[Rfam]
RNA: Ruegeria cis2 sRNA
RNA sequence: GUCCGUGUAGCGUGGGUUGUAGUUAAUGAAGGCAAAGCCGCGGGCCUGAUCAAUCGCAUGGAAAAGAGGGUUCCAGUCAAACAGCGCAAGCAUGAAACCGGGCAGGCUGUUGGCAACAAACAUCUUGCCCGAGGCGAUCAUGUUUGCCCGUUG
Numbered sequence: 001g002u003c004c005g006u007g008u009a010g011c012g013u014g015g016g017u018u019g020u021a022g023u024u025a026a027u028g029a030a031g032g033c034a035a036a037g038c039c040g041c042g043g044g045c046c047u048g049a050u051c052a053a054u055c056g057c058a059u060g061g062a063a064a065a066g067a068g069g070g071u072u073c074c075a076g077u078c079a080a081a082c083a084g085c086g087c088a089a090g091c092a093u094g095a096a097a098c099c100g101g102g103c104a105g106g107c108u109g110u111u112g113g114c115a116a117c118a119a120a121c122a123u124c125u126u127g128c129c130c131g132a133g134g135c136g137a138u139c140a141u142g143u144u145u146g147c148c149c150g151u152u153g
Base pairs, nucleotide, nucleotide: 002035006032008030013025014024015023037057038056040054042051043050065152066151068149070082071081072080086147087146088145089144090143091142092141093140094139098134099133101130102129103127104126105125106124108122110119111118112117